Streptomyces sRNA scr5239: a 180-nucleotide RNA from Actinacidiphila yanglinensis. On this family, see Vockenhuber et al., PLoS One 2015: "Identification of metE as a second target of the sRNA scr5239 in Streptomyces coelicolor".

RNA sequence: CCUCCGUUCUCCCCGCACAGGAGGACGGAUCGAGGCCAAGGCGUUCUCUGCCCUGACUACGCCGGACGCCUCACUGGUCGGCCCUAUCGGGUCGGAGGGCACCGCACACCCGUCCGACCACGGCGCCGACGGCUACUCCGGGCUGCGGUGCUGGAGAGGUUGAGGGUCCUCUCCCGGCAC
Numbered sequence: 001c002c003u004c005c006g007u008u009c010u011c012c013c014c015g016c017a018c019a020g021g022a023g024g025a026c027g028g029a030u031c032g033a034g035g036c037c038a039a040g041g042c043g044u045u046c047u048c049u050g051c052c053c054u055g056a057c058u059a060c061g062c063c064g065g066a067c068g069c070c071u072c073a074c075u076g077g078u079c080g081g082c083c084c085u086a087u088c089g090g091g092u093c094g095g096a097g098g099g100c101a102c103c104g105c106a107c108a109c110c111c112g113u114c115c116g117a118c119c120a121c122g123g124c125g126c127c128g129a130c131g132g133c134u135a136c137u138c139c140g141g142g143c144u145g146c147g148g149u150g151c152u153g154g155a156g157a158g159g160u161u162g163a164g165g166g167u168c169c170u171c172u173c174c175c176g177g178c179a180c
Base pairs, nucleotide, nucleotide: 003029004028005027006026008024009023010022011021012020032072033071034070035069036068040063041062043060044059045056046055078129079128080127081126082125084123134150135149136148137147139145140144153174154173155172156171157170158169159168
It scores 106 bits against the family's covariance model. Taxonomically the source falls in Actinacidiphila (Bacteria, Actinomycetota, Actinomycetes, Kitasatosporales).